Rfam assigns this 113-nucleotide RNA from Equus caballus to the family "Y RNA".
It is annotated as a non-coding RNA gene.
The family's consensus secondary structure is taken from published work.

[Rfam]
RNA sequence: GGCUGGUCCGAAGGUAGUGAGUUAUCUCAAUUGAUUGCUCACAGUCAGUCACAGAUCGAACUCCUUGUUCUACUCUUUCCCCCCUUCUCACUACUGCACUUGACUAGUCUUUU
Numbered sequence: 001g002g003c004u005g006g007u008c009c010g011a012a013g014g015u016a017g018u019g020a021g022u023u024a025u026c027u028c029a030a031u032u033g034a035u036u037g038c039u040c041a042c043a044g045u046c047a048g049u050c051a052c053a054g055a056u057c058g059a060a061c062u063c064c065u066u067g068u069u070c071u072a073c074u075c076u077u078u079c080c081c082c083c084c085u086u087c088u089c090a091c092u093a094c095u096g097c098a099c100u101u102g103a104c105u106a107g108u109c110u111u112u113u
Stems, first nucleotide, its partner, number of pairs: 001109008010101002014097002016092006044074001047071002
Rfam's curators put it in the seed alignment. The organism belongs to Equus, within Eukaryota.